[Rfam]
TPP riboswitch aptamer (THI element): a 104-nucleotide RNA from Desulfuromonas sp. AOP6.
The family's consensus secondary structure is taken from published work.
About the family: Vitamin B(1) in its active form thiamin pyrophosphate (TPP) is an essential coenzyme that is synthesised by coupling of pyrimidine and thiazole moieties in bacteria.
Gene Ontology term of the family: thiamine pyrophosphate binding.
Lineage of the source: Bacteria > Pseudomonadati > Thermodesulfobacteriota > Desulfuromonadales > Desulfuromonas.
RNA sequence: GAAAUGCCCUAGGGGAGUUUUUUACUGAGAGCCUGGCUACGGCGAGGCGACCCUUUGAACCUGAUCCGGGUGAUACCGGCGUAGGGAAGCGGCGCACGAUUCGG
Number, nucleotide and partner (000 for none) at each position: 001g000002a000003a000004a000005u000006g000007c091008c000009c089010u088011a054012g053013g052014g051015g000016a000017g025018u024019u000020u000021u000022u000023u000024a018025c017026u000027g000028a000029g000030a000031g000032c047033c046034u045035g000036g043037c000038u000039a000040c000041g000042g000043c036044g000045a034046g033047g032048c000049g000050a000051c014052c013053c012054u011055u000056u000057g000058a000059a000060c085061c084062u083063g082064a000065u000066c079067c078068g077069g076070g000071u000072g000073a000074u000075a000076c069077c068078g067079g066080c000081g000082u063083a062084g061085g060086g000087a000088a010089g009090c000091g007092g000093c000094g000095c000096a000097c000098g000099a000100u000101u000102c000103g000104g000